RNA sequence: UUGCAAUGAUGGAACUAUUUUUCGUCAACAGUAUAUUCAUGCGCUGCGUGUAUGUUGAGAUGUUGUGUCUGAGCAA
Numbered sequence: 001u002u003g004c005a006a007u008g009a010u011g012g013a014a015c016u017a018u019u020u021u022u023c024g025u026c027a028a029c030a031g032u033a034u035a036u037u038c039a040u041g042c043g044c045u046g047c048g049u050g051u052a053u054g055u056u057g058a059g060a061u062g063u064u065g066u067g068u069c070u071g072a073g074c075a076a
Stems, first nucleotide, its partner, number of pairs: 002075003008026004
The family of this 76-nucleotide RNA sequence from Xenopus laevis is "Small nucleolar RNA SNORD56". The base pairs follow the family's consensus structure, which was predicted with PFOLD. The family has 7 seed sequences and 796 matches in Rfam 15.1. By type it is a C/D-box small nucleolar RNA. Gene Ontology terms of the family: RNA processing and nucleolus. Lineage of the source: Eukaryota > Teleostomi > Tetrapoda > Pipidae > Xenopus.